[Rfam]
Nucleotides: 065
Stems, first nucleotide, its partner, number of pairs: 004061001006059003011055012025040001027038001029036001
Number, partner (000 for none) and nucleotide at each position: 001000g002000a003000u004061g005000g006059a007058u008057u009000a010000a011055a012054u013053c014052c015051a016050a017049u018048c019047c020046a021045u022044u023000a024000a025040c026000u027038a028000u029036u030000u031000u032000u033000u034000u035000u036029g037000u038027u039000u040025g041000g042000u043000g044022g045021a046020u047019g048018g049017a050016u051015u052014g053013g054012a055011u056000g057008g058007a059006u060000a061004u062000u063000a064000u065000g